[Rfam]
RNA sequence: CCUAAUAAAUAUAUAAUAUUUUGUUUUUUGUCCUUUAUAUUUUAUUUUAGUCCUUGCAAAAUAUGUUCAUGUUCAAAUUCGUCCUUGUAAUAUUUAUUGUAGUCCUUAUUUUAAAGGACUAAAAUCAAAUAUUUUACAUAUUACAUGGACCAAUUCCAAUAUUAAACAAUUUUGUAAGGAUUAAAACAAAACAGCAAGACUAAAACCAAUAUGUUAUAUAUUUGCAAGGA
Numbered sequence: 001c002c003u004a005a006u007a008a009a010u011a012u013a014u015a016a017u018a019u020u021u022u023g024u025u026u027u028u029u030g031u032c033c034u035u036u037a038u039a040u041u042u043u044a045u046u047u048u049a050g051u052c053c054u055u056g057c058a059a060a061a062u063a064u065g066u067u068c069a070u071g072u073u074c075a076a077a078u079u080c081g082u083c084c085u086u087g088u089a090a091u092a093u094u095u096a097u098u099g100u101a102g103u104c105c106u107u108a109u110u111u112u113a114a115a116g117g118a119c120u121a122a123a124a125u126c127a128a129a130u131a132u133u134u135u136a137c138a139u140a141u142u143a144c145a146u147g148g149a150c151c152a153a154u155u156c157c158a159a160u161a162u163u164a165a166a167c168a169a170u171u172u173u174g175u176a177a178g179g180a181u182u183a184a185a186a187c188a189a190a191a192c193a194g195c196a197a198g199a200c201u202a203a204a205a206c207c208a209a210u211a212u213g214u215u216a217u218a219u220a221u222u223u224g225c226a227a228g229g230a
Stems, first nucleotide, its partner, number of pairs: 006224008015215002018212002021209001023207001025205004030200002033198003038193001040191004045186005051180002054177009066165002069162005078153002081150004088143006108125005

The family of this 230-nucleotide RNA sequence from Trifolium medium is "MIR2630 microRNA precursor family". It scores 145 bits against the family's covariance model. Rfam links the family to the GO terms RISC complex and miRNA-mediated post-transcriptional gene silencing. Pairs were carried over by alignment from the consensus structure, which was predicted with RNAalifold.